[Rfam]
RNA sequence: CACUUCGGUCCGGAGUUGAUGGGUUAUCUACGAAUCUUCUUCUGCUUGCAGAGGAAACCCGUUCUUCAGAUGCAAGUCUGUUGAACACCCCGCAGCCUUCAAACAGUUGCAAACCCUUCCCAUCAACACCAACUUGACCGUUGU
Numbered sequence: 001c002a003c004u005u006c007g008g009u010c011c012g013g014a015g016u017u018g019a020u021g022g023g024u025u026a027u028c029u030a031c032g033a034a035u036c037u038u039c040u041u042c043u044g045c046u047u048g049c050a051g052a053g054g055a056a057a058c059c060c061g062u063u064c065u066u067c068a069g070a071u072g073c074a075a076g077u078c079u080g081u082u083g084a085a086c087a088c089c090c091c092g093c094a095g096c097c098u099u100c101a102a103a104c105a106g107u108u109g110c111a112a113a114c115c116c117u118u119c120c121c122a123u124c125a126a127c128a129c130c131a132a133c134u135u136g137a138c139c140g141u142u143g144u
Base pairs, nucleotide, nucleotide: 002144003143006140007139008138009137010136012130013129015127016126017125018124019123020122021121022120023119038055039054040053041052042051043050044049060072061071062070063069092110093109094108095107096106098105
RNA: Nematode sRNA ceN72-3_ceN74-2
Organism: Caenorhabditis brenneri